The family of this 206-nucleotide sequence from Channa argus is "Small nucleolar RNA U3". The base pairs follow the family's consensus structure, which is taken from published work. It scores 116 bits against the family's covariance model. Small nucleolar RNAs (snoRNAs) are involved in the processing and modification of rRNA in the nucleolus. There are two main classes of snoRNAs: the box C/D class, and the box H/ACA class. U3 snoRNA is a member of the box C/D class. Indeed, the box C/D element is a subset of the six short sequence elements found in all U3 snoRNAs, namely boxes A, A', B, C, C', and D. The U3 snoRNA secondary structure is characterised by a small 5' domain (with boxes A and A'), and a larger 3' domain (with boxes B, C, C', and D), the two domains being linked by a single-stranded hinge. Boxes B and C form the B/C motif, which appears to be exclusive to U3 snoRNAs, and boxes C' and D form the C'/D motif. The latter is functionally similar to the C/D motifs found in other snoRNAs. The 5' domain and the hinge region act as a pre-rRNA-binding domain. The 3' domain has conserved protein-binding sites. Both the box B/C and box C'/D motifs are sufficient for nuclear retention of U3 snoRNA. The box C'/D motif is also necessary for nucleolar localisation, stability and hyper-methylation of U3 snoRNA. Both box B/C and C'/D motifs are involved in specific protein interactions and are necessary for the rRNA processing functions of U3 snoRNA. The source organism's lineage runs through Eukaryota, Deuterostomia, Eurypterygia, Acanthomorphata and Channa.
RNA sequence: AAGACUGUACUUUCAGGGAUCAUUUCUUUAGUUGUUGGCAUGAGAAAUGUGUUUCUAGAGAGUUUGGUCUCGCUGCCCACGAUGAAGAGUUAAGAUGUUUCCUUCAGAGCAGGAAACUGGUGGAAGACUCAGUUUGUCCUCCACUGUUGAAGACUGGUCAGUGUCUGUGAGUCAGAUGCUGAUGGAGGAAACAUGGUCUGAGUGGA
Number, nucleotide and partner (000 for none) at each position: 001a041002a000003g039004a000005c037006u000007g000008u000009a032010c031011u030012u000013u000014c000015a027016g026017g025018g024019a000020u000021c000022a000023u000024u018025u017026c016027u015028u000029u000030a011031g010032u009033u000034g000035u000036u000037g005038g000039c003040a000041u001042g000043a000044g000045a000046a000047a000048u000049g064050u000051g000052u061053u060054u000055c000056u000057a000058g000059a000060g053061a052062g000063u000064u049065u000066g000067g000068u000069c000070u000071c000072g000073c000074u000075g000076c000077c205078c204079a203080c202081g000082a000083u000084g000085a000086a000087g000088a000089g000090u000091u000092a000093a000094g000095a194096u193097g192098u191099u190100u189101c188102c187103u186104u185105c184106a183107g000108a000109g000110c156111a155112g000113g000114a000115a000116a000117c000118u000119g145120g144121u143122g142123g000124a000125a000126g138127a137128c136129u000130c000131a000132g000133u000134u000135u000136g128137u127138c126139c000140u000141c000142c122143a121144c120145u119146g000147u000148u000149g000150a000151a000152g000153a000154c000155u111156g110157g000158u000159c000160a180161g179162u178163g177164u176165c175166u174167g173168u000169g000170a000171g000172u000173c167174a166175g165176a164177u163178g162179c161180u160181g000182a000183u106184g105185g104186a103187g102188g101189a100190a099191a098192c097193a096194u095195g000196g000197u000198c000199u000200g000201a000202g080203u079204g078205g077206a000